[Rfam]
The record is a 63-nucleotide sequence from Arachidicoccus ginsenosidimutans, which matches "Fluoride riboswitch aptamer (crcB RNA motif)" in Rfam. Gene Ontology terms of the family: positive regulation of gene expression and response to fluoride. The organism belongs to Arachidicoccus, within Bacteria.

RNA sequence: AUCGCAAAAGGAAAUGGUGUCUUCCUUCUCCAACCGCUAAAAGCUGAUGGCGCCUACAAAUUU
Numbered sequence: 001a002u003c004g005c006a007a008a009a010g011g012a013a014a015u016g017g018u019g020u021c022u023u024c025c026u027u028c029u030c031c032a033a034c035c036g037c038u039a040a041a042a043g044c045u046g047a048u049g050g051c052g053c054c055u056a057c058a059a060a061u062u063u
Stems, first nucleotide, its partner, number of pairs: 010025004016054006036044002